[Rfam]
RNA: TPP riboswitch aptamer (THI element)
RNA sequence: CUUGCAUCCCCGGGGAGCCUGCUUUGGCUGAGAGGGAUGGGUAAGCACCAUCCGACCCGUCGAACCUGAACUGACUAACAUCAGCGGAGGGAGUGGAGCGGUGCCUGCCA
Numbered sequence: 001c002u003u004g005c006a007u008c009c010c011c012g013g014g015g016a017g018c019c020u021g022c023u024u025u026g027g028c029u030g031a032g033a034g035g036g037a038u039g040g041g042u043a044a045g046c047a048c049c050a051u052c053c054g055a056c057c058c059g060u061c062g063a064a065c066c067u068g069a070a071c072u073g074a075c076u077a078a079c080a081u082c083a084g085c086g087g088a089g090g091g092a093g094u095g096g097a098g099c100g101g102u103g104c105c106u107g108c109c110a
Stems, first nucleotide, its partner, number of pairs: 007097003011059004017028003035053005065090003071084004